[Rfam]
RNA: BsrG
RNA sequence: GACGGUUCGGCUCUCAAGGGUGGUUGGCUCAUCUCCCGAAAGGAGGUGAAGCCAUGGAAGUGAAGGAUGCGCUGACGCUCAUGAUCUCGUUCAGCAUGCUCGUAGUGACCUUGCUUUCCUGCCUCAAACAGAAGUAGACCUCCCUUGAGCUGGCGGCCCGGGGAGGUCUCUCUUCUAAUAGUCCGUUAUUCAGCCGAUCGCCCCGAUGGGCAACCGUCCGCGCAGACCGCAGAUGGCACUCUGCGGUCU
Numbered sequence: 001g002a003c004g005g006u007u008c009g010g011c012u013c014u015c016a017a018g019g020g021u022g023g024u025u026g027g028c029u030c031a032u033c034u035c036c037c038g039a040a041a042g043g044a045g046g047u048g049a050a051g052c053c054a055u056g057g058a059a060g061u062g063a064a065g066g067a068u069g070c071g072c073u074g075a076c077g078c079u080c081a082u083g084a085u086c087u088c089g090u091u092c093a094g095c096a097u098g099c100u101c102g103u104a105g106u107g108a109c110c111u112u113g114c115u116u117u118c119c120u121g122c123c124u125c126a127a128a129c130a131g132a133a134g135u136a137g138a139c140c141u142c143c144c145u146u147g148a149g150c151u152g153g154c155g156g157c158c159c160g161g162g163g164a165g166g167u168c169u170c171u172c173u174u175c176u177a178a179u180a181g182u183c184c185g186u187u188a189u190u191c192a193g194c195c196g197a198u199c200g201c202c203c204c205g206a207u208g209g210g211c212a213a214c215c216g217u218c219c220g221c222g223c224a225g226a227c228c229g230c231a232g233a234u235g236g237c238a239c240u241c242u243g244c245g246g247u248c249u
Stems, first nucleotide, its partner, number of pairs: 001218001003216003007197006013149008022139001024137002029049003033046002036043001056118007070083002094109001159185003200211004231249004236244002